[Rfam]
RNA: TPP riboswitch aptamer (THI element)
Organism: Legionella massiliensis
RNA sequence: UUUUAUCGCCGGGGGUGCUUUGCUUUUUGUAGCAAGGCUGAGAAAAACCCUUACAACCUGCUCUGGUUAAUACCUGCGGAGGGAGUGUGAUAGGUCUUAUUG
Numbered sequence: 001u002u003u004u005a006u007c008g009c010c011g012g013g014g015g016u017g018c019u020u021u022g023c024u025u026u027u028u029g030u031a032g033c034a035a036g037g038c039u040g041a042g043a044a045a046a047a048c049c050c051u052u053a054c055a056a057c058c059u060g061c062u063c064u065g066g067u068u069a070a071u072a073c074c075u076g077c078g079g080a081g082g083g084a085g086u087g088u089g090a091u092a093g094g095u096c097u098u099a100u101u102g
Stems, first nucleotide, its partner, number of pairs: 006090004011051004016045001017038008057082003063076001065074002